[Rfam]
RNA sequence: CGGGAGUGAUCCCGCCGGAAUGUGGCUUAAGACCUAAGCUGAACCCUUGA
Numbered sequence: 001c002g003g004g005a006g007u008g009a010u011c012c013c014g015c016c017g018g019a020a021u022g023u024g025g026c027u028u029a030a031g032a033c034c035u036a037a038g039c040u041g042a043a044c045c046c047u048u049g050a
Base pairs, nucleotide, nucleotide: 001014002013003012004011005010017045018044024040025039026038027037028036

Rfam assigns this 50-nucleotide RNA sequence to the family "eL15-Euryarchaeota ribosomal protein leader". On this family, see Eckert and Weinberg, BMC Microbiol 2020: "Discovery of 20 novel ribosomal leader candidates in bacteria and archaea". The family's RNA type in Rfam is cis-regulatory leader. The sequence is in the family's curated seed alignment.